RNA sequence: GUUCAUCUUCAAGGGGCAGGGUGUAAUUCCCGACCGGUGGUACAGUCCAUGACCUGUCAUUUUUGACAGCUGAUUCGGUGAAAUUCCGAAACCGAUAGUUAAAGUCUAGAUAAAGGGAGAUUGAA
Numbered sequence: 001g002u003u004c005a006u007c008u009u010c011a012a013g014g015g016g017c018a019g020g021g022u023g024u025a026a027u028u029c030c031c032g033a034c035c036g037g038u039g040g041u042a043c044a045g046u047c048c049a050u051g052a053c054c055u056g057u058c059a060u061u062u063u064u065g066a067c068a069g070c071u072g073a074u075u076c077g078g079u080g081a082a083a084u085u086c087c088g089a090a091a092c093c094g095a096u097a098g099u100u101a102a103a104g105u106c107u108a109g110a111u112a113a114a115g116g117g118a119g120a121u122u123g124a125a
Stems, first nucleotide, its partner, number of pairs: 003123001005121006019031003033105002035094002037050004045092002054069002074090005096108003
RNA: FMN riboswitch aptamer (RFN element)